[Rfam]
RNA sequence: GCCGAAAGAAGGCAAAAUCACACAUGUGCCGUCACAGGUGUCGGGGUGCUAUUAGGUCUGGCCUAAUUAGUCGACAACUGGGGUACGUGGAGGUUCAAC
Numbered sequence: 001g002c003c004g005a006a007a008g009a010a011g012g013c014a015a016a017a018u019c020a021c022a023c024a025u026g027u028g029c030c031g032u033c034a035c036a037g038g039u040g041u042c043g044g045g046g047u048g049c050u051a052u053u054a055g056g057u058c059u060g061g062c063c064u065a066a067u068u069a070g071u072c073g074a075c076a077a078c079u080g081g082g083g084u085a086c087g088u089g090g091a092g093g094u095u096c097a098a099c
Stems, first nucleotide, its partner, number of pairs: 023089008035080003039076005048071004